This 132-nucleotide RNA sequence from Lottiidibacillus patelloidae belongs to the Rfam family "FMN riboswitch aptamer (RFN element)". The family's consensus secondary structure is taken from published work. It scores 125 bits against the family's covariance model. The organism belongs to Lottiidibacillus, within Bacteria.
RNA sequence: AUAAUCCUUCGGGGCAGGGUGAAAUUCCCAACCGGCGGUAAGGAAGGAAACUUCUAAGCCCGUGAGCCUUUUUUAGGCUGAUUUGGUGAAAAUCCAAAGCCGACAGUACAGUCUGGAUGGGAGAAGGAUAGC
Number, nucleotide and partner (000 for none) at each position: 001a000002u000003a000004a129005u128006c127007c126008u125009u124010c123011g000012g000013g000014g000015c000016a000017g029018g028019g027020u000021g000022a000023a000024a000025u000026u000027c019028c018029c017030a000031a112032c111033c102034g101035g063036c062037g061038g060039u000040a000041a000042g000043g000044a000045a000046g000047g000048a000049a000050a000051c000052u000053u000054c000055u000056a000057a000058g100059c099060c038061c037062g036063u035064g000065a000066g078067c077068c076069u000070u000071u000072u000073u000074u000075a000076g068077g067078c066079u000080g000081a000082u098083u097084u096085g095086g094087u000088g000089a000090a000091a000092a000093u000094c086095c085096a084097a083098a082099g059100c058101c034102g033103a000104c115105a114106g113107u000108a000109c000110a000111g032112u031113c106114u105115g104116g000117a000118u000119g000120g000121g000122a000123g010124a009125a008126g007127g006128a005129u004130a000131g000132c000